[Rfam]
The family of this 267-nucleotide sequence from Pseudomonas sp. HAR-UPW-AIA-41 is "rne-II RNA". A search with the family's covariance model found it, with a score of 165 bits. The organism belongs to Pseudomonas, within Bacteria. Pairs were carried over by alignment from the consensus structure, which is taken from published work. The family's RNA type in Rfam is cis-regulatory element.
RNA sequence: UGAUGUGUAGGGUGGAGACGCACAACCGGCCUGCAGCAAGUGACCCCGCAUCGAGAUGAUGCGCUAGUUUGUCCGCUGCCCCCGAUUGAUUCCUCCUCCUGAUUGAUUGCUUCCUGUCGUUACAGCAAGCAGGAGACGCCGUCGCAAUGUGGCCACAGGCUGCAUUUGCUGGACACAGGGAAGGCCCGCCUCCCCUGCAGCGCACCUGAACACCGACCAAGAGAGUCGUGUGUGCCGACCGCCGCUUCCGGAUAGCCCGGAGACCGA
Number, nucleotide and partner (000 for none) at each position: 001u000002g000003a000004u000005g000006u000007g000008u000009a000010g000011g000012g000013u000014g096015g095016a094017g093018a000019c000020g000021c000022a000023c088024a087025a086026c000027c084028g083029g079030c000031c000032u000033g076034c075035a000036g000037c000038a000039a000040g000041u000042g000043a000044c000045c000046c000047c000048g000049c000050a000051u000052c000053g000054a000055g000056a000057u000058g073059a072060u071061g070062c000063g000064c000065u000066a000067g000068u000069u000070u061071g060072u059073c058074c000075g034076c033077u000078g000079c029080c000081c000082c000083c028084g027085a000086u025087u024088g023089a000090u000091u000092c000093c017094u016095c015096c014097u134098c133099c132100u131101g130102a000103u000104u000105g000106a000107u000108u000109g000110c000111u000112u000113c000114c000115u000116g000117u000118c000119g000120u000121u000122a000123c000124a000125g000126c000127a000128a000129g000130c101131a100132g099133g098134a097135g000136a000137c202138g201139c200140c000141g174142u173143c172144g169145c168146a167147a166148u000149g163150u162151g161152g160153c159154c000155a000156c000157a000158g000159g153160c152161u151162g150163c149164a000165u000166u147167u146168g145169c144170u000171g000172g143173a142174c141175a000176c000177a000178g195179g194180g193181a000182a191183g190184g189185c000186c000187c000188g000189c184190c183191u182192c000193c180194c179195c178196u000197g000198c000199a000200g139201c138202g137203c000204a000205c000206c000207u000208g000209a000210a233211c232212a231213c230214c228215g227216a226217c225218c000219a000220a000221g000222a000223g000224a000225g217226u216227c215228g214229u000230g213231u212232g211233u210234g000235c000236c000237g000238a000239c000240c000241g000242c000243c000244g264245c000246u262247u261248c260249c259250g258251g000252a000253u000254a000255g000256c000257c000258c250259g249260g248261a247262g246263a000264c244265c000266g000267a000